Lysine riboswitch aptamer: a 168-nucleotide RNA sequence from Candidatus Izimoplasma sp. ZiA1. Riboswitches are metabolite binding domains within certain messenger RNAs that serve as precision sensors for their corresponding targets. It scores 84 bits against the family's covariance model.

RNA sequence: CAUAAAUUUAGAGGCAGCGAUGCAAAUAAGUAAAAUGUGGAGUCGGUAGACUGUGAAACAUUUGAAAGGUAACCAUCGCCGAAUAUCUUUAAUAGACAUAUUAAGAUAUGGGAUUAUAGGGAAUACCUAUAAUACUCCUACUUAAAAAGUAGAGGCGCUAAACAAUAU
Numbered sequence: 001c002a003u004a005a006a007u008u009u010a011g012a013g014g015c016a017g018c019g020a021u022g023c024a025a026a027u028a029a030g031u032a033a034a035a036u037g038u039g040g041a042g043u044c045g046g047u048a049g050a051c052u053g054u055g056a057a058a059c060a061u062u063u064g065a066a067a068g069g070u071a072a073c074c075a076u077c078g079c080c081g082a083a084u085a086u087c088u089u090u091a092a093u094a095g096a097c098a099u100a101u102u103a104a105g106a107u108a109u110g111g112g113a114u115u116a117u118a119g120g121g122a123a124u125a126c127c128u129a130u131a132a133u134a135c136u137c138c139u140a141c142u143u144a145a146a147a148a149g150u151a152g153a154g155g156c157g158c159u160a161a162a163c164a165a166u167a168u
Stems, first nucleotide, its partner, number of pairs: 007162005017079006025070001033063006083109005089104006110136002113133008138152005